[Rfam]
RNA sequence: UUCGGGCCACACGACUGGCGCGGGUGGACUGACCACCGGGGAGUGCAGCCGGAGCAUCGACCGCCUGGGUGCUCCUC
Numbered sequence: 001u002u003c004g005g006g007c008c009a010c011a012c013g014a015c016u017g018g019c020g021c022g023g024g025u026g027g028a029c030u031g032a033c034c035a036c037c038g039g040g041g042a043g044u045g046c047a048g049c050c051g052g053a054g055c056a057u058c059g060a061c062c063g064c065c066u067g068g069g070u071g072c073u074c075c076u077c
Base pairs, nucleotide, nucleotide: 003052005050006049007048010045011044012043015040016039017065018064019063020062024036025035026034027033054072055071056070057069058068